[Rfam]
RNA: Actinobacteria sRNA Ms_IGR-5
Organism: Amycolatopsis taiwanensis
RNA sequence: ACACGGGAAAGGAGGUGGUCCAAAGUUGUGUAACUACAGGACUCGUGAGGUGGCCGUCCGCUAACGGAUCCCGCUGGUGACGUUGGUGAAUACCAGGCGGUCACCGAACCCCCGGCGUCCCGGGCACCGGUCCGGCUCGGGCCGAGCGGCUGACGACGCUCAGGAGCCUCGCCGGGGGUUCUCUUCA
Numbered sequence: 001a002c003a004c005g006g007g008a009a010a011g012g013a014g015g016u017g018g019u020c021c022a023a024a025g026u027u028g029u030g031u032a033a034c035u036a037c038a039g040g041a042c043u044c045g046u047g048a049g050g051u052g053g054c055c056g057u058c059c060g061c062u063a064a065c066g067g068a069u070c071c072c073g074c075u076g077g078u079g080a081c082g083u084u085g086g087u088g089a090a091u092a093c094c095a096g097g098c099g100g101u102c103a104c105c106g107a108a109c110c111c112c113c114g115g116c117g118u119c120c121c122g123g124g125c126a127c128c129g130g131u132c133c134g135g136c137u138c139g140g141g142c143c144g145a146g147c148g149g150c151u152g153a154c155g156a157c158g159c160u161c162a163g164g165a166g167c168c169u170c171g172c173c174g175g176g177g178g179u180u181c182u183c184u185u186c187a
Stems, first nucleotide, its partner, number of pairs: 014058006059088007067081001106181012120140006